[Rfam]
RNA: Archaeal large subunit ribosomal RNA, nucleotides 10 to 538
RNA sequence: CUACUGUGCCACCUGGUGGAUAGCUCGGCUCGAGUGCCGAUGAAGGACGUGCCAAGCUGCGAUAAGCUCCAGGGACCCGCACGGAGGGUAAGAACUGGAGAUUUCCGAAUGGGAAUCCCCUCGCAAUUGCUUCGCGCAAUGGGGAACGCCGGGAAUUGAAACAUCUCAGUACCGGCAGGAAGAGAAACCAAACGGGAUGUCGUUAGUAACGGCGAGUAAACGCGACACAGUCCAAACCGAAGCCUUCGGGCAAUGUGGUGUUCGGACUGACCCCCAUCAUCGGACCGUCUACAUGAAGUCUCCUGGAACGGAGCGUGAUACAGGGUGACAACCCCGUAAUGUAGACCAGUACGAUGUGAGUCAGCUCCAGAGUAUCGGGGGUUGGAUAUCCCUCGUGAAUACGGCCGGCAUUGACGGCUAAGACUAAAUACAUCUCGAGACCGAUAGCGAACAAGUAGCGUGAGCGAACGCUGAAAAGCACCCCACAACGGGAGGUGCAAUAGGGCUUGAAAUCAGGUGGCGAUCGAGC
Dot-bracket structure: ......((((((((((.....(((..((((((((((........((((((........))).....((((((...(((.......)))......))))))...)))....(((....))).....(((((.....)))))......((((((.....((....))......))))).).........((....))...(((((.....((.....))....)))))..((((....(((................))).........((((......((((..........(((...(.((((......)))))..(...).(((.......)))...)))...........))))...))))............((((((........)))))).......(((((.......)))))..)))).....)).)))))).))...............((....))....))...................................).....)))))))))).......